[Rfam]
RNA sequence: UUAUGAAUAUACUCACCGUUUUGAUUUUAUAACAGUAACGACAAGCUAAACAUUCACUAUAUUAAGACCACGCGUGUGUCUCGGACCCACCUUUCCCUAGGUCUGUUUUUAUAAAUGCUGGUGAUAAAC
Numbered sequence: 001u002u003a004u005g006a007a008u009a010u011a012c013u014c015a016c017c018g019u020u021u022u023g024a025u026u027u028u029a030u031a032a033c034a035g036u037a038a039c040g041a042c043a044a045g046c047u048a049a050a051c052a053u054u055c056a057c058u059a060u061a062u063u064a065a066g067a068c069c070a071c072g073c074g075u076g077u078g079u080c081u082c083g084g085a086c087c088c089a090c091c092u093u094u095c096c097c098u099a100g101g102u103c104u105g106u107u108u109u110u111a112u113a114a115a116u117g118c119u120g121g122u123g124a125u126a127a128a129c
Stems, first nucleotide, its partner, number of pairs: 004056002018042003022038001024036003067122004072118002082105006089098001

A member of the RNA family "Small nucleolar RNA SNORA72" from Gorilla gorilla, 129 nucleotides long. The base pairs follow the family's consensus structure, which was predicted with PFOLD. Its family is annotated with RNA processing and nucleolus in the Gene Ontology. Rfam describes the family as follows. U72 is a member of the H/ACA class of snoRNAs. The snoRNA gene is located in intron 4 of the ribosomal L30 protein gene in human, mouse and chicken.